The family of this 169-nucleotide RNA sequence from Blautia obeum is "Clostridiales-1 RNA". Rfam's curators put it in the seed alignment. The family's RNA type in Rfam is small RNA.

[Rfam]
RNA sequence: UGAUACCAGGGGCAAAAAUUUCAAAUGAUGUUCGUGCUUGCACGAUAAAGCAUUUGAAUUUGGGGACCUCCAAACAUGAGGAAGUAGCGAUUUACAUAGUAAAUCAGCGGAUUCCGAAUGUUUGAAGGAUUGUGGGAGCAGUUUACUGCGGAACAAUCCGUAAGUAUCA
Numbered sequence: 001u002g003a004u005a006c007c008a009g010g011g012g013c014a015a016a017a018a019u020u021u022c023a024a025a026u027g028a029u030g031u032u033c034g035u036g037c038u039u040g041c042a043c044g045a046u047a048a049a050g051c052a053u054u055u056g057a058a059u060u061u062g063g064g065g066a067c068c069u070c071c072a073a074a075c076a077u078g079a080g081g082a083a084g085u086a087g088c089g090a091u092u093u094a095c096a097u098a099g100u101a102a103a104u105c106a107g108c109g110g111a112u113u114c115c116g117a118a119u120g121u122u123u124g125a126a127g128g129a130u131u132g133u134g135g136g137a138g139c140a141g142u143u144u145a146c147u148g149c150g151g152a153a154c155a156a157u158c159c160g161u162a163a164g165u166a167u168c169a
Stems, first nucleotide, its partner, number of pairs: 001169006011067001013065001017061002020058008029049001031047001032045005069125002072122001074121004080115004087108002089105007127159007138149004